Notes
Rfam assigns this 86-nucleotide RNA from Protea cynaroides to the family "Tymovirus/Pomovirus/Furovirus tRNA-like 3' UTR element". Lineage of the source: Eukaryota > Streptophyta > Streptophytina > Euphyllophyta > Protea. Its family is annotated with regulation of translation in the Gene Ontology. The family's RNA type in Rfam is cis-regulatory element. This family represents a tRNA-like structure found in the 3' UTR of Tymoviruses, Pomoviruses and Furovirus. A search with the family's covariance model found it, with a score of 46 bits.
[Rfam]
RNA sequence: AUGGUCGGCGAGCGGCUGACAAUGUCAAGACAAGACAUUGAGAAGGGGUGGUACUCCCCCGCCCAACGUGAGCGAAAUCACGUCAA
Numbered sequence: 001a002u003g004g005u006c007g008g009c010g011a012g013c014g015g016c017u018g019a020c021a022a023u024g025u026c027a028a029g030a031c032a033a034g035a036c037a038u039u040g041a042g043a044a045g046g047g048g049u050g051g052u053a054c055u056c057c058c059c060c061g062c063c064c065a066a067c068g069u070g071a072g073c074g075a076a077a078u079c080a081c082g083u084c085a086a
Stems, first nucleotide, its partner, number of pairs: 005019005020040007045059004060074003067082005